[Rfam]
RNA sequence: CCCCGGGCUCACACCCGGGGCUAAGUGCUGCCGCGGCUACGCCGCU
Number, nucleotide and partner (000 for none) at each position: 001c020002c019003c018004c017005g016006g015007g014008c000009u000010c000011a000012c000013a000014c007015c006016c005017g004018g003019g002020g001021c000022u000023a000024a000025g000026u000027g000028c000029u000030g000031c000032c000033g045034c044035g043036g042037c041038u000039a000040c000041g037042c036043c035044g034045c033046u000
RNA: Acido-Lenti-1 RNA